The family of this 73-nucleotide sequence from Pipistrellus kuhlii is "mir-9193 microRNA precursor family". The family's consensus secondary structure was predicted with RNAalifold. The match comes from Rfam's covariance-model search (56 bits).

RNA sequence: GGAGGGGGAGGAAGUCCUUCAGCCCAGAUUGCAAGAGGGUGCAGGUCAGACUGAAGGACCCCACUAGUGCAUG
Numbered sequence: 001g002g003a004g005g006g007g008g009a010g011g012a013a014g015u016c017c018u019u020c021a022g023c024c025c026a027g028a029u030u031g032c033a034a035g036a037g038g039g040u041g042c043a044g045g046u047c048a049g050a051c052u053g054a055a056g057g058a059c060c061c062c063a064c065u066a067g068u069g070c071a072u073g
Base pairs, nucleotide, nucleotide: 001070003068006065007064011062014059015058016057017056018055019054020053021052022051024049027046029044030043031042032041033040